[Rfam]
Annotation
The family of this 70-nucleotide RNA sequence from Nyctibius bracteatus is "Small nucleolar RNA SNORD58". snoRNA U58 is found in introns 1, 3 and 6 of the ribosomal protein RPL17 gene in humans. On this family, see Galardi et al., Mol Cell Biol 2002: "Purified box C/D snoRNPs are able to reproduce site-specific 2'-O-methylation of target RNA in vitro". Taxonomically the source falls in Nyctibius (Eukaryota, Vertebrata, Amniota, Dinosauria).
RNA sequence: UGGUAGUGGUGACUAUCUUAGGACACCUUUGGAAUAACCGUGAAAUAAUACUUAGUUCUUUCUGAGCCAU
Numbered sequence: 001u002g003g004u005a006g007u008g009g010u011g012a013c014u015a016u017c018u019u020a021g022g023a024c025a026c027c028u029u030u031g032g033a034a035u036a037a038c039c040g041u042g043a044a045a046u047a048a049u050a051c052u053u054a055g056u057u058c059u060u061u062c063u064g065a066g067c068c069a070u
Base pairs, nucleotide, nucleotide: 001069002068003067004066